[Rfam]
RNA: M-box riboswitch aptamer (ykoK leader)
RNA sequence: UGAUAUCCUCGUUAGGCGAGGCGUCUGCAUCAACAUAGGCCACUGCUCCGACCCGUCUAAAGACGCUAAGGAGUAGACCAGAAGUUGCCGGAUUAAGGCUUCUUCCAAUGUGGCUGAACUCUCACGGGAGUUCUCACGUGAUGCAGUGCCAAAGCUCCACCAGGGGGAUUGCG
Numbered sequence: 001u002g003a004u005a006u007c008c009u010c011g012u013u014a015g016g017c018g019a020g021g022c023g024u025c026u027g028c029a030u031c032a033a034c035a036u037a038g039g040c041c042a043c044u045g046c047u048c049c050g051a052c053c054c055g056u057c058u059a060a061a062g063a064c065g066c067u068a069a070g071g072a073g074u075a076g077a078c079c080a081g082a083a084g085u086u087g088c089c090g091g092a093u094u095a096a097g098g099c100u101u102c103u104u105c106c107a108a109u110g111u112g113g114c115u116g117a118a119c120u121c122u123c124a125c126g127g128g129a130g131u132u133c134u135c136a137c138g139u140g141a142u143g144c145a146g147u148g149c150c151a152a153a154g155c156u157c158c159a160c161c162a163g164g165g166g167g168a169u170u171g172c173g
Base pairs, nucleotide, nucleotide: 005169006168007167008166009165010164011160012159013096015156016155017154020150021149022148025146026145027144028143029142030141031140032139039114040113041112042111043110045074046073047072048071049070054065055064056063057062081105082104083103084102087099088098089097116133117132118131119130120129121128